[Rfam]
The family of this 166-nucleotide sequence from Nodosilinea sp. LEGE 07088 is "Group II catalytic intron D1-D4-3".

RNA sequence: GUUUCCGCGAGGAAGGGUCUGAAGGAAGCCAGCGGCAAAACUGCGAGCCGACGGACAGAAACGUCAUAGAAGGCCGAGUCUCUGGGGCGAGUUGGCACAACACAAUAAAGCCCUAUGGUUCAGGAGAUACGGUAAAUGACGCGGUUGUGCAGGGAAAGUUCACGUU
Numbered sequence: 001g002u003u004u005c006c007g008c009g010a011g012g013a014a015g016g017g018u019c020u021g022a023a024g025g026a027a028g029c030c031a032g033c034g035g036c037a038a039a040a041c042u043g044c045g046a047g048c049c050g051a052c053g054g055a056c057a058g059a060a061a062c063g064u065c066a067u068a069g070a071a072g073g074c075c076g077a078g079u080c081u082c083u084g085g086g087g088c089g090a091g092u093u094g095g096c097a098c099a100a101c102a103c104a105a106u107a108a109a110g111c112c113c114u115a116u117g118g119u120u121c122a123g124g125a126g127a128u129a130c131g132g133u134a135a136a137u138g139a140c141g142c143g144g145u146u147g148u149g150c151a152g153g154g155a156a157a158g159u160u161c162a163c164g165u166u
Base pairs, nucleotide, nucleotide: 002015003014004013005012006011028166030164035159036158041152042151043150044149045148046146047145048144049143050142062141063140064139065138066137067136073133074132075131078128079127080126081125082124083123085113086112087111088110091106092105093104094103
Dot-bracket structure: .(((((....)))))............(.(....((....((((((((((...........((((((.....(((..((((((.((((..((((........))))...)))).........))))))..)))..))))))))))).))))).....))....).)

About the family: Group II introns are found in rRNA, tRNA and mRNA of organelles in fungi, plants and protists, and also in mRNA in bacteria. NCBI's taxonomy places the organism under Bacteria, Bacillati, Cyanobacteriota, Nodosilineaceae, Nodosilinea.